[Rfam]
RNA: Purine riboswitch aptamer
RNA sequence: AUUCAUACAACAUUGAUUUUAUGUAUAUGCCCGGGAAUAUGGCCCGGGCGUCUCUACCGGGUUACCUUAAAUGACCUGACUACAUGAAAGAGAAGAGAAGGU
Numbered sequence: 001a002u003u004c005a006u007a008c009a010a011c012a013u014u015g016a017u018u019u020u021a022u023g024u025a026u027a028u029g030c031c032c033g034g035g036a037a038u039a040u041g042g043c044c045c046g047g048g049c050g051u052c053u054c055u056a057c058c059g060g061g062u063u064a065c066c067u068u069a070a071a072u073g074a075c076c077u078g079a080c081u082a083c084a085u086g087a088a089a090g091a092g093a094a095g096a097g098a099a100g101g102u
Base pairs, nucleotide, nucleotide: 018088019087020086021085022084023083024082025081029049030048031047032046033045034044035043058078059077060076061075062074063073064072